This 103-nucleotide RNA from Vitreoscilla sp. C1 belongs to the Rfam family "TPP riboswitch aptamer (THI element)". The match comes from Rfam's covariance-model search (71 bits). NCBI's taxonomy places the organism under Bacteria, Pseudomonadati, Neisseriales, Neisseriaceae, Vitreoscilla. Rfam links the family to the GO term thiamine pyrophosphate binding.
RNA sequence: ACAUCGUUGCAGGGGAACGCCAUUUGGGCGUUGAGAAAGAUUUCGAUCUGACCCUUUGAACCUGUCGGUUAAUACCGGCGUAGGGAGCAAGCGUCUUGAAUCU
Numbered sequence: 001a002c003a004u005c006g007u008u009g010c011a012g013g014g015g016a017a018c019g020c021c022a023u024u025u026g027g028g029c030g031u032u033g034a035g036a037a038a039g040a041u042u043u044c045g046a047u048c049u050g051a052c053c054c055u056u057u058g059a060a061c062c063u064g065u066c067g068g069u070u071a072a073u074a075c076c077g078g079c080g081u082a083g084g085g086a087g088c089a090a091g092c093g094u095c096u097u098g099a100a101u102c103u
Stems, first nucleotide, its partner, number of pairs: 007090004011055004017031005038049004061084004065078004